[Rfam]
RNA sequence: UCAGUCGACCGGACGGCCGCUCCGCCAAAAUUCCGAAAGGAUGAUCCCGAAAGGGCGGCGGGGAGGAAAGUCCGGGCUCCACGGACGAACGGUGCCGGAUAACGUCCGGCGGGUGUGUCUUCCGCCCAAAGCGGCAGACGGGCUUAGGGAAAGUGCCACAGAAAAGCAGACCGCCUCGGGCGCGUUGCGUACCAGCCUGCGGCAAGGGUGAAACGGUGCGGCAAGAGCGCACCGCGUUUCCGGCAACGGAAACGGCACGGUAAACCCCACCGGGAGCAAAACCGAAUAGGAGCGGUGCGAGGGCAAAGGCUUGCCUUUGUCCUUGGGUCCGUCCGGACCAGCCGCUCGGGUAGGUUGCUUGAGGCGCCGGGCAACCGGCGUCCCAGACGAAUGGCCGUCACGUUCGCCGCGCAAGCGGCGAGCCAUACAGAACCCGGCUUACAGGUCGGCUGAUGAC
Numbered sequence: 001u002c003a004g005u006c007g008a009c010c011g012g013a014c015g016g017c018c019g020c021u022c023c024g025c026c027a028a029a030a031u032u033c034c035g036a037a038a039g040g041a042u043g044a045u046c047c048c049g050a051a052a053g054g055g056c057g058g059c060g061g062g063g064a065g066g067a068a069a070g071u072c073c074g075g076g077c078u079c080c081a082c083g084g085a086c087g088a089a090c091g092g093u094g095c096c097g098g099a100u101a102a103c104g105u106c107c108g109g110c111g112g113g114u115g116u117g118u119c120u121u122c123c124g125c126c127c128a129a130a131g132c133g134g135c136a137g138a139c140g141g142g143c144u145u146a147g148g149g150a151a152a153g154u155g156c157c158a159c160a161g162a163a164a165a166g167c168a169g170a171c172c173g174c175c176u177c178g179g180g181c182g183c184g185u186u187g188c189g190u191a192c193c194a195g196c197c198u199g200c201g202g203c204a205a206g207g208g209u210g211a212a213a214c215g216g217u218g219c220g221g222c223a224a225g226a227g228c229g230c231a232c233c234g235c236g237u238u239u240c241c242g243g244c245a246a247c248g249g250a251a252a253c254g255g256c257a258c259g260g261u262a263a264a265c266c267c268c269a270c271c272g273g274g275a276g277c278a279a280a281a282c283c284g285a286a287u288a289g290g291a292g293c294g295g296u297g298c299g300a301g302g303g304c305a306a307a308g309g310c311u312u313g314c315c316u317u318u319g320u321c322c323u324u325g326g327g328u329c330c331g332u333c334c335g336g337a338c339c340a341g342c343c344g345c346u347c348g349g350g351u352a353g354g355u356u357g358c359u360u361g362a363g364g365c366g367c368c369g370g371g372c373a374a375c376c377g378g379c380g381u382c383c384c385a386g387a388c389g390a391a392u393g394g395c396c397g398u399c400a401c402g403u404u405c406g407c408c409g410c411g412c413a414a415g416c417g418g419c420g421a422g423c424c425a426u427a428c429a430g431a432a433c434c435c436g437g438c439u440u441a442c443a444g445g446u447c448g449g450c451u452g453a454u455g456a457c
Base pairs, nucleotide, nucleotide: 001453002452003451004450005449006448007447008446009445010444011442012399013398014397015396016395017394018393020063021062022061023060024059025058026057068440069439070438072437073436074435075434076433077276078275079274080273087332090272091271092270093269094268095109096108097107098106099105110147111145112144113143114142148267149266153265154264155261156260157259171207172206173203174202175201177199178198179197180196181195215233216232217231218230219229220228234256235254236253237252238251239250240249241248242247280356281355282354283353290347291346292345293344294343295342325339326338328336329335363382364381365380366379367378368377369376370375

Bacterial RNase P class A: a 457-nucleotide RNA sequence from Pseudorhodoplanes sinuspersici. Rfam classes the family as a ribozyme. Rfam links the family to the GO terms tRNA processing, ribonuclease P activity and dimeric ribonuclease P complex. The base pairs follow the family's consensus structure, which is taken from published work.